[Rfam]
RNA sequence: CAGCGCCUGCAGCAUGACAGCCAAGGCCGCCAUGCCCGUGCGCUUUAUGAAUCUGGUCGAGCCGCUGGGCGCCUCCAAACCUGCAGGCCCCACCGCCAGGCGCACCACGGAUACCACCGCGCGGCACACCAGCGCGGCCUGGUCCGGCGCAGUUUCCCAACUGAUCGGCGCAAGCCUUCGGCGGGGCGACGUAGAUAGCUCGACGCUUCG
Numbered sequence: 001c002a003g004c005g006c007c008u009g010c011a012g013c014a015u016g017a018c019a020g021c022c023a024a025g026g027c028c029g030c031c032a033u034g035c036c037c038g039u040g041c042g043c044u045u046u047a048u049g050a051a052u053c054u055g056g057u058c059g060a061g062c063c064g065c066u067g068g069g070c071g072c073c074u075c076c077a078a079a080c081c082u083g084c085a086g087g088c089c090c091c092a093c094c095g096c097c098a099g100g101c102g103c104a105c106c107a108c109g110g111a112u113a114c115c116a117c118c119g120c121g122c123g124g125c126a127c128a129c130c131a132g133c134g135c136g137g138c139c140u141g142g143u144c145c146g147g148c149g150c151a152g153u154u155u156c157c158c159a160a161c162u163g164a165u166c167g168g169c170g171c172a173a174g175c176c177u178u179c180g181g182c183g184g185g186g187c188g189a190c191g192u193a194g195a196u197a198g199c200u201c202g203a204c205g206c207u208u209c210g
Stems, first nucleotide, its partner, number of pairs: 004042003012035005018029001020027002057203006063095002066092004100150004108146004114142002117137005153189002156186003161181004167176003
Rfam assigns this 210-nucleotide sequence to the family "RT-15 RNA". Rfam classes the family as a small RNA.